[Rfam]
This 79-nucleotide RNA from Takifugu flavidus belongs to the Rfam family "Small nucleolar RNA SNORD72".
It is annotated as a C/D-box small nucleolar RNA.
snoRNA HBII-240 belongs to the CD family of snoRNAs. It is the human orthologue of the mouse MBII-240 and is predicted to guide 2'O-ribose methylation of the large 28S rRNA at residue U4590.
RNA sequence: CACUUACCGAUGAUGGAAUGAGGAAAAUGUCCGAACAAAUGAAUCAAAUGUGAAAUCAGUAUUCAUUCUGAGGUAAGCU
Numbered sequence: 001c002a003c004u005u006a007c008c009g010a011u012g013a014u015g016g017a018a019u020g021a022g023g024a025a026a027a028u029g030u031c032c033g034a035a036c037a038a039a040u041g042a043a044u045c046a047a048a049u050g051u052g053a054a055a056u057c058a059g060u061a062u063u064c065a066u067u068c069u070g071a072g073g074u075a076a077g078c079u
Base pairs, nucleotide, nucleotide: 003077004076005075006074007073008072